Rfam assigns this 142-nucleotide RNA from Crocodylus porosus to the family "Small nucleolar RNA U109". A reference for the family is Gu et al. (2005), "A novel experimental approach for systematic identification of box H/ACA snoRNAs from eukaryotes", Nucleic Acids Res. The match comes from Rfam's covariance-model search (129 bits). The family's consensus secondary structure was predicted with WAR. Its family is annotated with nucleolus and RNA processing in the Gene Ontology. The family's RNA type in Rfam is H/ACA-box small nucleolar RNA.
RNA sequence: CUGCAUGUUAAAAAUAAAUAUUCUGCUCCUCUUUCCCUUGAGGAGCAUGAAUAAAUCCAUAACAUGCUACAGAAAUUAAGGAGUCUUCAGGGCUACCAGCCUUGCAGUAAAGGCUGAGUGGUAGUAUCUCUCUCCUACAUUA
Numbered sequence: 001c002u003g004c005a006u007g008u009u010a011a012a013a014a015u016a017a018a019u020a021u022u023c024u025g026c027u028c029c030u031c032u033u034u035c036c037c038u039u040g041a042g043g044a045g046c047a048u049g050a051a052u053a054a055a056u057c058c059a060u061a062a063c064a065u066g067c068u069a070c071a072g073a074a075a076u077u078a079a080g081g082a083g084u085c086u087u088c089a090g091g092g093c094u095a096c097c098a099g100c101c102u103u104g105c106a107g108u109a110a111a112g113g114c115u116g117a118g119u120g121g122u123a124g125u126a127u128c129u130c131u132c133u134c135c136u137a138c139a140u141u142a
Base pairs, nucleotide, nucleotide: 003067004066005065006064007063008062022049024047025046026045027044028043029042080135081134082133083132092122093121096118097116098115099114100113101112102111103110